The family of this 182-nucleotide RNA from Oncorhynchus kisutch is "U2 spliceosomal RNA". By type it is a spliceosomal small nuclear RNA. Gene Ontology terms of the family: mRNA branch site recognition, U2 snRNP and pre-mRNA branch point binding. The source organism's lineage runs through Eukaryota, Chordata, Euteleostomi, Actinopteri and Oncorhynchus.

RNA sequence: AUAAAUUAUUUUUUGUAAAAAAAAAAAAAAUGCUGUUCUUAUCAGUUUAAUAUCUGAUACGUCCCCCAUAGGGGACUACAUAUUAAAUGGAUUUUUCGAACAGGGAGUCGGAAAUGGGGCUUGCUCCGUCGCUCCACGCAUCGACCCGGUAUUGCAGUACCUCCGGGAACGGUGCAAACACU
Numbered sequence: 001a002u003a004a005a006u007u008a009u010u011u012u013u014u015g016u017a018a019a020a021a022a023a024a025a026a027a028a029a030a031u032g033c034u035g036u037u038c039u040u041a042u043c044a045g046u047u048u049a050a051u052a053u054c055u056g057a058u059a060c061g062u063c064c065c066c067c068a069u070a071g072g073g074g075a076c077u078a079c080a081u082a083u084u085a086a087a088u089g090g091a092u093u094u095u096u097c098g099a100a101c102a103g104g105g106a107g108u109c110g111g112a113a114a115u116g117g118g119g120c121u122u123g124c125u126c127c128g129u130c131g132c133u134c135c136a137c138g139c140a141u142c143g144a145c146c147c148g149g150u151a152u153u154g155c156a157g158u159a160c161c162u163c164c165g166g167g168a169a170c171g172g173u174g175c176a177a178a179c180a181c182u
Base pairs, nucleotide, nucleotide: 007025009023011021012020013018040059041058042057043056044055045054061076062075063074064073065072066071104135105134106133107132109131110130111129116127117126118125119124138175139174140173141172142171143170145167146166147165148164149163
Dot-bracket structure: ......(.(.(((....).)).).)..............((((((........)))))).((((((....))))))...........................((((.(((....((((....)))).)))))))..((((((.(((((.............)))))..)))))).......